[Rfam]
RNA sequence: AUUAUCCUAAUUUGUAAGUCGCUUUGGAUAUAAGCGUCUGCUAAAUGAUUAAAU
Numbered sequence: 001a002u003u004a005u006c007c008u009a010a011u012u013u014g015u016a017a018g019u020c021g022c023u024u025u026g027g028a029u030a031u032a033a034g035c036g037u038c039u040g041c042u043a044a045a046u047g048a049u050u051a052a053a054u
Stems, first nucleotide, its partner, number of pairs: 013043001014041003020036005
Description: Shown here is a 54-nucleotide RNA from Carassius auratus, a member of the family "UnaL2 LINE 3' element". Rfam links the family to the GO term transposition, RNA-mediated. Lineage of the source: Eukaryota > Bilateria > Deuterostomia > Otophysi > Carassius. A search with the family's covariance model found it, with a score of 57 bits. Rfam classes the family as a cis-regulatory element. The base pairs follow the family's consensus structure, which is taken from published work.